The record is a 137-nucleotide sequence from Amphiprion ocellaris, which matches "Small nucleolar RNA SNORA57" in Rfam. The family has 26 seed sequences and 1,736 matches in Rfam 15.1. It scores 87 bits against the family's covariance model. The literature on the family includes a 2003 paper in Nucleic Acids Res by Vitali et al., "Identification of 13 novel human modification guide RNAs". By type it is an H/ACA-box small nucleolar RNA. Rfam's curators write: U99 belongs to the H/ACA class of snoRNAs which are thought to guide the sites of modification of uridines to pseudouridines, the target for this family is unknown. Its family is annotated with nucleolus and RNA processing in the Gene Ontology.
RNA sequence: CCUCCUUUCUUGGCAUACUCGUUGUUUCACCGUACACGUGUGUGUAUGUGAUGGAGGAAUAUAAAAGUCCAGUGCUAUGUCUUCGGUGCCAGAAAGUCAACCAUCUUCUGGUUCUAUCCUCAAUCACUGGUACAACC
Numbered sequence: 001c002c003u004c005c006u007u008u009c010u011u012g013g014c015a016u017a018c019u020c021g022u023u024g025u026u027u028c029a030c031c032g033u034a035c036a037c038g039u040g041u042g043u044g045u046a047u048g049u050g051a052u053g054g055a056g057g058a059a060u061a062u063a064a065a066a067g068u069c070c071a072g073u074g075c076u077a078u079g080u081c082u083u084c085g086g087u088g089c090c091a092g093a094a095a096g097u098c099a100a101c102c103a104u105c106u107u108c109u110g111g112u113u114c115u116a117u118c119c120u121c122a123a124u125c126a127c128u129g130g131u132a133c134a135a136c137c
Stems, first nucleotide, its partner, number of pairs: 001057005014044005021037001023036003070129005089111006096105001